[Rfam]
RNA sequence: CUCUUAUUAAGAGUGGUGGAGGGAUGUGCCCUAUGAAGCCCGGCAACCGUCAACGAUGUUGAAAUGGUGCCAAUUCACACAAAGCAUUGCUUUGGGAAAUGAGAG
Numbered sequence: 001c002u003c004u005u006a007u008u009a010a011g012a013g014u015g016g017u018g019g020a021g022g023g024a025u026g027u028g029c030c031c032u033a034u035g036a037a038g039c040c041c042g043g044c045a046a047c048c049g050u051c052a053a054c055g056a057u058g059u060u061g062a063a064a065u066g067g068u069g070c071c072a073a074u075u076c077a078c079a080c081a082a083a084g085c086a087u088u089g090c091u092u093u094g095g096g097a098a099a100u101g102a103g104a105g
Base pairs, nucleotide, nucleotide: 001105002104003103004102005101006100007099008098013041015040016039017038021031022030023029025079026078027077028076042071043070044069045068047067048066050062051061052060075097080094081093082092083091084090085089

SAM riboswitch aptamer (S box leader): a 105-nucleotide RNA from Litchfieldia salsa. Its family is annotated with regulation of gene expression in the Gene Ontology. The SAM riboswitch is found upstream of a number of genes which code for proteins involved in methionine or cysteine biosynthesis in Gram-positive bacteria.